[Rfam]
RNA sequence: UGCCCGGUGAUGACACCAUCCUUGCUCCCCGUGCCCCCAGGGGCUGUGGGUGACAACUUGGCUGCCCCUGGGCUGGGCUGUGGGGCCGUUGCCCGGGGGCUGAGGGCA
Numbered sequence: 001u002g003c004c005c006g007g008u009g010a011u012g013a014c015a016c017c018a019u020c021c022u023u024g025c026u027c028c029c030c031g032u033g034c035c036c037c038c039a040g041g042g043g044c045u046g047u048g049g050g051u052g053a054c055a056a057c058u059u060g061g062c063u064g065c066c067c068c069u070g071g072g073c074u075g076g077g078c079u080g081u082g083g084g085g086c087c088g089u090u091g092c093c094c095g096g097g098g099g100c101u102g103a104g105g106g107c108a
Base pairs, nucleotide, nucleotide: 001108002107003106004105005104
A member of the RNA family "Small nucleolar RNA SNORD23" from Fukomys damarensis, 108 nucleotides long. On this family, see Galardi et al., Mol Cell Biol 2002: "Purified box C/D snoRNPs are able to reproduce site-specific 2'-O-methylation of target RNA in vitro". It is annotated as a C/D-box small nucleolar RNA. Rfam 15.1 lists 153 matches to the family in 134 species. Taxonomically the source falls in Fukomys (Eukaryota, Opisthokonta, Bilateria, Bathyergidae). Its family is annotated with RNA processing and nucleolus in the Gene Ontology.